[Rfam]
RNA sequence: GUUACCUUUAAACCAGUCCUGUGAGGCUGGCAAGGUGGAACAGAUAGCCAUCUGUUACUGAAAGAGAAUUACUUCUCUUUGAAGUUAAGCACCUUGCCAUAUUUGGUAAGGUGUUUUUUUAU
Dot-bracket structure: ..((((((....((((((......)))))).))))))................(((..(.((((((((....)))))))).)))).(((((((((((((....)))))))))))))......
Numbered sequence: 001g002u003u004a005c006c007u008u009u010a011a012a013c014c015a016g017u018c019c020u021g022u023g024a025g026g027c028u029g030g031c032a033a034g035g036u037g038g039a040a041c042a043g044a045u046a047g048c049c050a051u052c053u054g055u056u057a058c059u060g061a062a063a064g065a066g067a068a069u070u071a072c073u074u075c076u077c078u079u080u081g082a083a084g085u086u087a088a089g090c091a092c093c094u095u096g097c098c099a100u101a102u103u104u105g106g107u108a109a110g111g112u113g114u115u116u117u118u119u120u121a122u
Stems, first nucleotide, its partner, number of pairs: 003037006013030006054085003059082001061080008087116013
PyrR binding site: a 122-nucleotide sequence from Virgibacillus sp. SK37. It scores 68 bits against the family's covariance model. On this family, see Bonner et al., Nucleic Acids Res 2001: "Molecular recognition of pyr mRNA by the Bacillus subtilis attenuation regulatory protein PyrR". The organism belongs to Virgibacillus, within Bacteria. The base pairs follow the family's consensus structure, which is taken from published work. Rfam classes the family as a cis-regulatory element. This family represents the PyrR binding site and terminator structure.